[Rfam]
RNA sequence: UACAGAAGCAUAGAUUUUCACAUACCGAUCUGAAGAGUUUGUGCAAAUCUGUCGCAUCUGUAGG
Numbered sequence: 001u002a003c004a005g006a007a008g009c010a011u012a013g014a015u016u017u018u019c020a021c022a023u024a025c026c027g028a029u030c031u032g033a034a035g036a037g038u039u040u041g042u043g044c045a046a047a048u049c050u051g052u053c054g055c056a057u058c059u060g061u062a063g064g
Stems, first nucleotide, its partner, number of pairs: 001062005008055002010052008019043004024038002026035001

Shown here is a 64-nucleotide sequence from Caenorhabditis brenneri, a member of the family "mir-254 microRNA precursor family". On this family, see Kato et al., Genome Biol 2009: "Dynamic expression of small non-coding RNAs, including novel microRNAs and piRNAs/21U-RNAs, during Caenorhabditis elegans development". The sequence is in the family's curated seed alignment. Gene Ontology terms of the family: miRNA-mediated post-transcriptional gene silencing and RISC complex.